Rfam assigns this 92-nucleotide RNA sequence from Lapillicoccus jejuensis to the family "Selenocysteine transfer RNA".
Pairs were carried over by alignment from the consensus structure, which is taken from published work.
Taxonomically the source falls in Lapillicoccus (Bacteria, Bacillati, Actinomycetota, Intrasporangiaceae).
Rfam links the family to the GO term triplet codon-amino acid adaptor activity.
[Rfam]
RNA sequence: GGAGGCGUACGGGUGCCUGGUGGCCCCCCCGGUCUUCAACACCGGUGUGACCCGGGAUCCGGGUCAGGCGGGUUCGAUUCCCGUCCGCCUCC
Number, nucleotide and partner (000 for none) at each position: 001g092002g091003a090004g089005g088006c087007g086008u000009a084010c000011g000012g027013g026014u000015g024016c023017c022018u000019g000020g000021u000022g017023g016024c015025c000026c013027c012028c000029c045030c044031g043032g042033u041034c000035u000036u000037c000038a000039a000040c000041a033042c032043c031044g030045g029046u000047g000048u066049g065050a064051c063052c062053c000054g000055g000056g000057a000058u000059c000060c000061g000062g052063g051064u050065c049066a048067g000068g000069c083070g082071g081072g080073u000074u000075c000076g000077a000078u000079u000080c072081c071082c070083g069084u009085c000086c007087g006088c005089c004090u003091c002092c001